The family of this 109-nucleotide sequence from Nannospalax galili is "Small nucleolar RNA SNORD23". A reference for the family is Huttenhofer et al. (2001), "RNomics: an experimental approach that identifies 201 candidates for novel, small, non-messenger RNAs in mouse", EMBO J. The match comes from Rfam's covariance-model search (125 bits). The pairing is the family consensus, mapped onto this sequence.
[Rfam]
RNA sequence: UGCCCAGUGAUGACACCACCCUUGCUCCCCGUGCCCUCAGGGGCUAUGGGUGACAACAUGGCUGCCCUUGGGCUGGGCCAGUUGGGUCAUUGCCUGGGGGUUGAGGGCA
Numbered sequence: 001u002g003c004c005c006a007g008u009g010a011u012g013a014c015a016c017c018a019c020c021c022u023u024g025c026u027c028c029c030c031g032u033g034c035c036c037u038c039a040g041g042g043g044c045u046a047u048g049g050g051u052g053a054c055a056a057c058a059u060g061g062c063u064g065c066c067c068u069u070g071g072g073c074u075g076g077g078c079c080a081g082u083u084g085g086g087u088c089a090u091u092g093c094c095u096g097g098g099g100g101u102u103g104a105g106g107g108c109a
Base pairs, nucleotide, nucleotide: 001109002108003107004106005105
It is annotated as a C/D-box small nucleolar RNA.